Record summary:
Bacterial RNase P class A: a 369-nucleotide RNA from Pelobacter propionicus. Rfam classes the family as a ribozyme. About the family: Ribonuclease P (RNase P) is a ubiquitous endoribonuclease, found in archaea, bacteria and eukarya as well as chloroplasts and mitochondria. Pairs were carried over by alignment from the consensus structure, which is taken from published work.
RNA sequence: UGAAGCAGGACAGACGGCCGCCGCCGAGGUAUCGGGGGAGGAAAGUCCGGGCUCCACAGGGCGCGAUGCUGGAUAACGUCCAGCGGGGGUGACCCCAGGGAAAGUGCCACAGAGAGAAGUCCGCCUGCCACGCGCAGGUAAGGGUGAAAGGGUGAGGUAAGAGCUCACCGGGUCCAUCGGUGACGGUGGAUGCCAGGUAAACCCCAUCGGGAGCAAGACCUAAUAGGGGGGCGUCAAGGGUGGCCCGCCCGUGCCUCCGGGUUGGUUGCUUGAGGCUGCCGGUAACGGCAGACCCAGAUGAAUGGCCGUCGCCCGGGAAGGGGUAACCCGACCCGGGAACAGAACCCGGCUUACGGACUGCUUCAGCCA
Numbered sequence: 001u002g003a004a005g006c007a008g009g010a011c012a013g014a015c016g017g018c019c020g021c022c023g024c025c026g027a028g029g030u031a032u033c034g035g036g037g038g039a040g041g042a043a044a045g046u047c048c049g050g051g052c053u054c055c056a057c058a059g060g061g062c063g064c065g066a067u068g069c070u071g072g073a074u075a076a077c078g079u080c081c082a083g084c085g086g087g088g089g090u091g092a093c094c095c096c097a098g099g100g101a102a103a104g105u106g107c108c109a110c111a112g113a114g115a116g117a118a119g120u121c122c123g124c125c126u127g128c129c130a131c132g133c134g135c136a137g138g139u140a141a142g143g144g145u146g147a148a149a150g151g152g153u154g155a156g157g158u159a160a161g162a163g164c165u166c167a168c169c170g171g172g173u174c175c176a177u178c179g180g181u182g183a184c185g186g187u188g189g190a191u192g193c194c195a196g197g198u199a200a201a202c203c204c205c206a207u208c209g210g211g212a213g214c215a216a217g218a219c220c221u222a223a224u225a226g227g228g229g230g231g232c233g234u235c236a237a238g239g240g241u242g243g244c245c246c247g248c249c250c251g252u253g254c255c256u257c258c259g260g261g262u263u264g265g266u267u268g269c270u271u272g273a274g275g276c277u278g279c280c281g282g283u284a285a286c287g288g289c290a291g292a293c294c295c296a297g298a299u300g301a302a303u304g305g306c307c308g309u310c311g312c313c314c315g316g317g318a319a320g321g322g323g324u325a326a327c328c329c330g331a332c333c334c335g336g337g338a339a340c341a342g343a344a345c346c347c348g349g350c351u352u353a354c355g356g357a358c359u360g361c362u363u364c365a366g367c368c369a
Stems, first nucleotide, its partner, number of pairs: 001365008011356001013310007021038002024035004043352003047349005052213004059246004064209005069083005084098001085096004099204002104202002106198003121143002123139006151169006171193001172191008217267004227258006238250004274293001276291006